[Rfam]
RNA sequence: GCUGGGCAUGGUCACAGCGCCUAUAGUCCCAGCUACUCAGGAGGCUGAGGCUGGGGCAUCGCUAGAGUCCAGGAGUUCUAGACUGUAGUGCUCUAGGCUGAUUGCGUGUCCACACUAAGCUCGGCAUCAAUAUGGUGACCUCCCAGGAGUGAGGAAUCAUCAGGUAGCCUAAGGAGGGGUAAACCUGCCCAGGUGGGAAAUGGAGUAGGUCAAAACUCCUGUGCUGAUCAGUAGUGAGAUCAUUCCUGUAAACAGCCACUGCACUCCAGCCUGGGAAACAUAGCGAGACCUUGUCUCUU
Numbered sequence: 001g002c003u004g005g006g007c008a009u010g011g012u013c014a015c016a017g018c019g020c021c022u023a024u025a026g027u028c029c030c031a032g033c034u035a036c037u038c039a040g041g042a043g044g045c046u047g048a049g050g051c052u053g054g055g056g057c058a059u060c061g062c063u064a065g066a067g068u069c070c071a072g073g074a075g076u077u078c079u080a081g082a083c084u085g086u087a088g089u090g091c092u093c094u095a096g097g098c099u100g101a102u103u104g105c106g107u108g109u110c111c112a113c114a115c116u117a118a119g120c121u122c123g124g125c126a127u128c129a130a131u132a133u134g135g136u137g138a139c140c141u142c143c144c145a146g147g148a149g150u151g152a153g154g155a156a157u158c159a160u161c162a163g164g165u166a167g168c169c170u171a172a173g174g175a176g177g178g179g180u181a182a183a184c185c186u187g188c189c190c191a192g193g194u195g196g197g198a199a200a201u202g203g204a205g206u207a208g209g210u211c212a213a214a215a216c217u218c219c220u221g222u223g224c225u226g227a228u229c230a231g232u233a234g235u236g237a238g239a240u241c242a243u244u245c246c247u248g249u250a251a252a253c254a255g256c257c258a259c260u261g262c263a264c265u266c267c268a269g270c271c272u273g274g275g276a277a278a279c280a281u282a283g284c285g286a287g288a289c290c291u292u293g294u295c296u297c298u299u
Stems, first nucleotide, its partner, number of pairs: 001045003004022004009017001011015001027042003047297005053291003059286006068275006078269002081266002084263007093255002103248002106245001108243002110238001113236005119229001121227007128167001130165002133162006141154002144151002168174002175220006187210003194203001196201001

The record is a 299-nucleotide RNA sequence from Chrysochloris asiatica, which matches "Metazoan signal recognition particle RNA" in Rfam.
Pairs were carried over by alignment from the consensus structure, which is taken from published work.
The signal recognition particle (SRP) is a universally conserved ribonucleoprotein. It is involved in the co-translational targeting of proteins to membranes. The eukaryotic SRP consists of a 300-nucleotide 7S RNA and six proteins: SRPs 72, 68, 54, 19, 14, and 9.
Rfam links the family to the GO terms SRP-dependent cotranslational protein targeting to membrane, signal sequence recognition and signal recognition particle, endoplasmic reticulum targeting.
The literature on the family includes a 2002 paper in Curr Opin Struct Biol by Wild et al., "Towards the structure of the mammalian signal recognition particle".